[Rfam]
RNA sequence: UUCUCAAGGAUGAGCAAAGAAAGUAGAUUUUUUAGAUUCUAAAGAAACUAUCUUCUUUGCUCAUCCUUGAGAA
Numbered sequence: 001u002u003c004u005c006a007a008g009g010a011u012g013a014g015c016a017a018a019g020a021a022a023g024u025a026g027a028u029u030u031u032u033u034a035g036a037u038u039c040u041a042a043a044g045a046a047a048c049u050a051u052c053u054u055c056u057u058u059g060c061u062c063a064u065c066c067u068u069g070a071g072a073a
Base pairs, nucleotide, nucleotide: 002072003071004070005069006068008066009065010064011063012062013061014060015059016058017057018056019055020054021053023051024050025049026048028046029045030044031043
The family of this 73-nucleotide sequence from Gorilla gorilla is "mir-1255 microRNA precursor family". Rfam's curators put it in the seed alignment.